Group II catalytic intron D1-D4-1: an 80-nucleotide sequence from Candidatus Accumulibacter sp. SK-11. Lineage of the source: Bacteria > Pseudomonadati > Pseudomonadota > Betaproteobacteria > Candidatus Accumulibacter. The base pairs follow the family's consensus structure. Rfam describes the family as follows. Group II introns are found in rRNA, tRNA and mRNA of organelles in fungi, plants and protists, and also in mRNA in bacteria. The match comes from Rfam's covariance-model search (50 bits).
[Rfam]
RNA sequence: CUGGGCGUUGGGUGACUGGCGCUGAAUGCCGUGGAGAAGUCAGCAGAGGGCAUAGUGGGUGGCGCUUCCCACCGAAGGCC
Numbered sequence: 001c002u003g004g005g006c007g008u009u010g011g012g013u014g015a016c017u018g019g020c021g022c023u024g025a026a027u028g029c030c031g032u033g034g035a036g037a038a039g040u041c042a043g044c045a046g047a048g049g050g051c052a053u054a055g056u057g058g059g060u061g062g063c064g065c066u067u068c069c070c071a072c073c074g075a076a077g078g079c080c
Base pairs, nucleotide, nucleotide: 002026004023005022006021007020008019009018010017011016040047041046049080050079051078058073059072060071061070062069
Dot-bracket structure: .(.((((((((....))))))))..).............((....)).(((......(((((......)))))....)))